About this RNA
Rfam assigns this 85-nucleotide RNA sequence from Neogobius melanostomus to the family "Small nucleolar RNA SNORD35". The family has 8 seed sequences and 1,842 matches in Rfam 15.1. Rfam describes the family as follows. U35 is a C/D box snoRNA located in intron 6 of ribosomal protein L13A and intron 3 of ribosomal protein S11 in humans and at homologous positions in mouse and chicken ribosomal protein genes. U35 guides the methylation of 2'-O-ribose sites in 28S rRNA. The family's consensus secondary structure was predicted with PFOLD. Rfam links the family to the GO terms RNA processing and nucleolus. It scores 63 bits against the family's covariance model.
RNA sequence: UACAAAUGAUGUUUUUUCUCACGAUGGUCUUCCAAGCCUUAUGGGUUUUGACGACAUUGCCUAAUGGCAUUACUGAUGUAGCCCG
Numbered sequence: 001u002a003c004a005a006a007u008g009a010u011g012u013u014u015u016u017u018c019u020c021a022c023g024a025u026g027g028u029c030u031u032c033c034a035a036g037c038c039u040u041a042u043g044g045g046u047u048u049u050g051a052c053g054a055c056a057u058u059g060c061c062u063a064a065u066g067g068c069a070u071u072a073c074u075g076a077u078g079u080a081g082c083c084c085g
Stems, first nucleotide, its partner, number of pairs: 001080004
The family's RNA type in Rfam is C/D-box small nucleolar RNA. Clan: SNORD35 clan.